[Rfam]
RNA sequence: CACCCAGGAUGGCAAGCGCGUGCAGCGUGUCGGUAUUGGAGCAGGGGCCGGCAUGUACAUCCAGGGGUAGCCGGGGGUCGGAUGUCGGGGGACAUCCGACCCUCUUUAU
Numbered sequence: 001c002a003c004c005c006a007g008g009a010u011g012g013c014a015a016g017c018g019c020g021u022g023c024a025g026c027g028u029g030u031c032g033g034u035a036u037u038g039g040a041g042c043a044g045g046g047g048c049c050g051g052c053a054u055g056u057a058c059a060u061c062c063a064g065g066g067g068u069a070g071c072c073g074g075g076g077g078u079c080g081g082a083u084g085u086c087g088g089g090g091g092a093c094a095u096c097c098g099a100c101c102c103u104c105u106u107u108a109u
Stems, first nucleotide, its partner, number of pairs: 003066003007062005012056002029052005036045002073104014

Shown here is a 109-nucleotide RNA sequence from Solilutibacter pythonis, a member of the family "Xanthomonadaceae sRNA asX1". The family's consensus secondary structure was predicted with CMfinder. NCBI's taxonomy places the organism under Bacteria, Gammaproteobacteria, Lysobacterales, Lysobacteraceae, Solilutibacter. It scores 73 bits against the family's covariance model.